[Rfam]
RNA sequence: CUAUGCUGUUUCUUCUGUUUUUCUCUUAUUCAUAGAGAGCAGA
Numbered sequence: 001c002u003a004u005g006c007u008g009u010u011u012c013u014u015c016u017g018u019u020u021u022u023c024u025c026u027u028a029u030u031c032a033u034a035g036a037g038a039g040c041a042g043a
Stems, first nucleotide, its partner, number of pairs: 006042006

Plastid-rpoB 5UTR RNA: a 43-nucleotide sequence from Dendrobium nobile. Taxonomically the source falls in Dendrobium (Eukaryota, Embryophyta, Tracheophyta, Mesangiospermae). On this family, see Richter et al., Plant Commun 2023: "Retrograde signaling in plants: A critical review focusing on the GUN pathway and beyond". Rfam describes the family as follows. Plastid rpoB is a non-coding RNA (ncRNA) recognised in plastids. It was found in the 5 prime untranslated region (5UTR) of a chloroplast-encoded RNA polymerase subunit (rpoB) in plastids, suggesting a posible cis-regulatory function. It is annotated as a cis-regulatory element. Pairs were carried over by alignment from the consensus structure, which was predicted with LocARNA.